[Rfam]
RNA sequence: AUUCGUAGAAGAGGUCGCUGAACCUAUCAGUAACCGUCGCGAGGCGAGAUUGCGUCCAUGACCGACGGCGAAAGGAGGUUUGGCCGAAAUUCCUGAAGUCAUUCUGCCUCAGGGGUUGGGCCCGGAUCCAAUAGAUCCGGGACUGUCACGGGAAACCGUGGAGAGCUGUCGAUGAA
Numbered sequence: 001a002u003u004c005g006u007a008g009a010a011g012a013g014g015u016c017g018c019u020g021a022a023c024c025u026a027u028c029a030g031u032a033a034c035c036g037u038c039g040c041g042a043g044g045c046g047a048g049a050u051u052g053c054g055u056c057c058a059u060g061a062c063c064g065a066c067g068g069c070g071a072a073a074g075g076a077g078g079u080u081u082g083g084c085c086g087a088a089a090u091u092c093c094u095g096a097a098g099u100c101a102u103u104c105u106g107c108c109u110c111a112g113g114g115g116u117u118g119g120g121c122c123c124g125g126a127u128c129c130a131a132u133a134g135a136u137c138c139g140g141g142a143c144u145g146u147c148a149c150g151g152g153a154a155a156c157c158g159u160g161g162a163g164a165g166c167u168g169u170c171g172a173u174g175a176a
Base pairs, nucleotide, nucleotide: 006171008169010167011166017084018083019082020081021080022079023078024077025076034068035067036066037065038064039063088117089116090115091114092113093112094111095110096109098107099106118144119143121141122140123139124138125137126136127135128134146161147160148159149158150157151156

This 176-nucleotide sequence from Bifidobacterium commune belongs to the Rfam family "Lysine riboswitch aptamer". Pairs were carried over by alignment from the consensus structure, which is taken from published work.